Description
Small nucleolar RNA Z13/snr52: a 106-nucleotide sequence from Candolleomyces eurysporus. NCBI's taxonomy places the organism under Eukaryota, Dikarya, Agaricomycetes, Agaricineae, Candolleomyces. Gene Ontology terms of the family: nucleolus and RNA processing. The family's consensus secondary structure was predicted with PFOLD.

[Rfam]
RNA sequence: UUGUAUCGAUGAUGAAGCCAAUACGGAUGUAAAUGGUCUUAGGACUAUUUCCGAGAGCGCAUACAACCAUGUGGAUCCUUCCGUUGCCUUCCUUCUGACCUUUAUC
Numbered sequence: 001u002u003g004u005a006u007c008g009a010u011g012a013u014g015a016a017g018c019c020a021a022u023a024c025g026g027a028u029g030u031a032a033a034u035g036g037u038c039u040u041a042g043g044a045c046u047a048u049u050u051c052c053g054a055g056a057g058c059g060c061a062u063a064c065a066a067c068c069a070u071g072u073g074g075a076u077c078c079u080u081c082c083g084u085u086g087c088c089u090u091c092c093u094u095c096u097g098a099c100c101u102u103u104a105u106c
Stems, first nucleotide, its partner, number of pairs: 003105003024083004